[Rfam]
Shown here is a 233-nucleotide RNA from Laodelphax striatellus, a member of the family "Group II catalytic intron D1-D4-6". A search with the family's covariance model found it, with a score of 105 bits. Its family is annotated with Group II intron splicing in the Gene Ontology. The source organism's lineage runs through Eukaryota, Dicondylia, Delphacoidea, Delphacidae and Laodelphax. The pairing is the family consensus, mapped onto this sequence. About the family: Group II introns are found in rRNA, tRNA and mRNA of organelles in fungi, plants and protists, and also in mRNA in bacteria.

RNA sequence: AAAAUCCAACACGGGUAAAGCUUAGCCAGCAGCCUGGAACAAACCAUUAUGCUGCGUAAGGUAACGAGCGUAGUAAAGCUAAUGGAAUGGACAACAUAGGGUGCAACGAAAGUGAAGGAAAUGAGCCGAAAAACUGUCGCGUCAUGGGGGCCGACACUUUACAUUUGGUGGAACGCAGCAAGGGUAAUAACGCUAAGGCAAGGUAUUACUCACCCCGUCGGGAUCGAAGGCCG
Numbered sequence: 001a002a003a004a005u006c007c008a009a010c011a012c013g014g015g016u017a018a019a020g021c022u023u024a025g026c027c028a029g030c031a032g033c034c035u036g037g038a039a040c041a042a043a044c045c046a047u048u049a050u051g052c053u054g055c056g057u058a059a060g061g062u063a064a065c066g067a068g069c070g071u072a073g074u075a076a077a078g079c080u081a082a083u084g085g086a087a088u089g090g091a092c093a094a095c096a097u098a099g100g101g102u103g104c105a106a107c108g109a110a111a112g113u114g115a116a117g118g119a120a121a122u123g124a125g126c127c128g129a130a131a132a133a134c135u136g137u138c139g140c141g142u143c144a145u146g147g148g149g150g151c152c153g154a155c156a157c158u159u160u161a162c163a164u165u166u167g168g169u170g171g172a173a174c175g176c177a178g179c180a181a182g183g184g185u186a187a188u189a190a191c192g193c194u195a196a197g198g199c200a201a202g203g204u205a206u207u208a209c210u211c212a213c214c215c216c217g218u219c220g221g222g223a224u225c226g227a228a229g230g231c232c233g
Stems, first nucleotide, its partner, number of pairs: 012036005020030003023201001025199002040089002044085004050075008060065001122227001123225001125224001126221003144218006150176002155170004182211008191202001
Dot-bracket structure: ...........(((((...((([.[[.))).)))))...((..((((..((((((((..(....)..))))))))......))))..))................................((.((((...............((((((((...((((........))))....)).....((((((((.(......]].]).)))))))).)))))))))..)).)......